[Rfam]
RNA sequence: GUCCACUAUGACCCCUAGAUCCCUUUCCGCCAGGCUCCUUCCCAUACAUACAAGAUGGGAAGCGACUGUCUAGGAAGGAGCCUGGCGGAAAGGGAUCUAGGGGUCAUAGUGGACCACA
Numbered sequence: 001g002u003c004c005a006c007u008a009u010g011a012c013c014c015c016u017a018g019a020u021c022c023c024u025u026u027c028c029g030c031c032a033g034g035c036u037c038c039u040u041c042c043c044a045u046a047c048a049u050a051c052a053a054g055a056u057g058g059g060a061a062g063c064g065a066c067u068g069u070c071u072a073g074g075a076a077g078g079a080g081c082c083u084g085g086c087g088g089a090a091a092g093g094g095a096u097c098u099a100g101g102g103g104u105c106a107u108a109g110u111g112g113a114c115c116a117c118a
Base pairs, nucleotide, nucleotide: 010105011104012103013102014101015100016099018097019096021094022093023092024091025090026089027088028087029086030085031084032083033082034081035080036079037078038077039076040075041074042073
Dot-bracket structure: .........(((((((.((.((((((((((((((((((((((..............................)))))))))))))))))))))).)).))))))).............